[Rfam]
Rfam assigns this 81-nucleotide RNA from Monodelphis domestica to the family "Small nucleolar RNA SNORD70". It scores 62 bits against the family's covariance model. Lineage of the source: Eukaryota > Vertebrata > Teleostomi > Mammalia > Monodelphis.
RNA sequence: CUUAUUGUUGUCAGUGAUGGAUUUUGUUGAAUGAAAAACAAGUGAUUUGACAUUCGUCACUACCACUGAGACAACAGGGAA
Dot-bracket structure: .((.((((((((.........................................................)))))))).)).